Rfam assigns this 275-nucleotide RNA from Brevibacillus fulvus to the family "T-box leader".
Rfam classes the family as a cis-regulatory leader.
It scores 109 bits against the family's covariance model.
The source organism's lineage runs through Bacteria, Bacilli, Caryophanales, Paenibacillaceae and Brevibacillus.
Its family is annotated with tRNA binding in the Gene Ontology.
[Rfam]
RNA sequence: CCAAAAACGUCGAAUGGGAAGAGUAAACAAAGCUGCCUUGGCAGAGAGGGAGAAUCGAAACGCUGCGAGAUUCUCUAAGGCACAGGUUUUGUUGAAGGUCGCCCAGGAGUUGUUUCGGCGAGCACGAAGGAUUGGCGGCUGAUUGUCGCAUCCGGAGUGGGUAGUCGGGACCGGCCGCAGCCGUUAUCUGAAUGAUGAGUGGGCAUGCAGGGGAAGACCCGCAAACUGCAUGCUAACAAAGGUGGUACCGCGAAAAUAACCCUUUCGUCCUUUGG
Numbered sequence: 001c002c003a004a005a006a007a008c009g010u011c012g013a014a015u016g017g018g019a020a021g022a023g024u025a026a027a028c029a030a031a032g033c034u035g036c037c038u039u040g041g042c043a044g045a046g047a048g049g050g051a052g053a054a055u056c057g058a059a060a061c062g063c064u065g066c067g068a069g070a071u072u073c074u075c076u077a078a079g080g081c082a083c084a085g086g087u088u089u090u091g092u093u094g095a096a097g098g099u100c101g102c103c104c105a106g107g108a109g110u111u112g113u114u115u116c117g118g119c120g121a122g123c124a125c126g127a128a129g130g131a132u133u134g135g136c137g138g139c140u141g142a143u144u145g146u147c148g149c150a151u152c153c154g155g156a157g158u159g160g161g162u163a164g165u166c167g168g169g170a171c172c173g174g175c176c177g178c179a180g181c182c183g184u185u186a187u188c189u190g191a192a193u194g195a196u197g198a199g200u201g202g203g204c205a206u207g208c209a210g211g212g213g214a215a216g217a218c219c220c221g222c223a224a225a226c227u228g229c230a231u232g233c234u235a236a237c238a239a240a241g242g243u244g245g246u247a248c249c250g251c252g253a254a255a256a257u258a259a260c261c262c263u264u265u266c267g268u269c270c271u272u273u274g275g
Stems, first nucleotide, its partner, number of pairs: 007110002015105004026093006039077003051074006113170007172183003202234009239272004250268005